Record summary: c-di-AMP riboswitch aptamer (ydaO/yuaA leader): a 160-nucleotide RNA sequence from Caulifigura coniformis. Rfam links the family to the GO terms regulation of gene expression and cyclic-di-AMP binding. Lineage of the source: Bacteria > Pseudomonadati > Planctomycetia > Planctomycetaceae > Caulifigura.
RNA sequence: UCUUGUGUGCAGCCUAAUCCCGGGCGGACUGUCCGGGAGCGGGGGACCCACGUUGGAAGCGGCCAGCCGCUUCUCGGGGCGAAGGCCUCAUUAGACAGGUCAGAGCACUUUCAAGCUCCAGCCCGACAGCUCACCCCGUCGGCGGCCGGACGAUGGUCGU
Numbered sequence: 001u002c003u004u005g006u007g008u009g010c011a012g013c014c015u016a017a018u019c020c021c022g023g024g025c026g027g028a029c030u031g032u033c034c035g036g037g038a039g040c041g042g043g044g045g046a047c048c049c050a051c052g053u054u055g056g057a058a059g060c061g062g063c064c065a066g067c068c069g070c071u072u073c074u075c076g077g078g079g080c081g082a083a084g085g086c087c088u089c090a091u092u093a094g095a096c097a098g099g100u101c102a103g104a105g106c107a108c109u110u111u112c113a114a115g116c117u118c119c120a121g122c123c124c125g126a127c128a129g130c131u132c133a134c135c136c137c138g139u140c141g142g143c144g145g146c147c148g149g150a151c152g153a154u155g156g157u158c159g160u
Stems, first nucleotide, its partner, number of pairs: 012143003018038009039139006049076001077124003085100004103118004